[Rfam]
MIR5298 microRNA precursor family: a 91-nucleotide RNA from Medicago truncatula. Lineage of the source: Eukaryota > Pentapetalae > Papilionoideae > Trifolieae > Medicago. A search with the family's covariance model found it, with a score of 72 bits.
RNA sequence: UUAAGUUUUCUUCAUUUUAUUCUGGAUUUUUUUUGGGAUUCUUGUUGUUGAAGGUUGACGGAGAUGCUAUGAAGAUGAAAAAGAGGAGAAA
Numbered sequence: 001u002u003a004a005g006u007u008u009u010c011u012u013c014a015u016u017u018u019a020u021u022c023u024g025g026a027u028u029u030u031u032u033u034u035g036g037g038a039u040u041c042u043u044g045u046u047g048u049u050g051a052a053g054g055u056u057g058a059c060g061g062a063g064a065u066g067c068u069a070u071g072a073a074g075a076u077g078a079a080a081a082a083g084a085g086g087a088g089a090a091a
Base pairs, nucleotide, nucleotide: 006084007083008082009081011079012078013077014076015075016074017073018072037056038055039054040053042051043050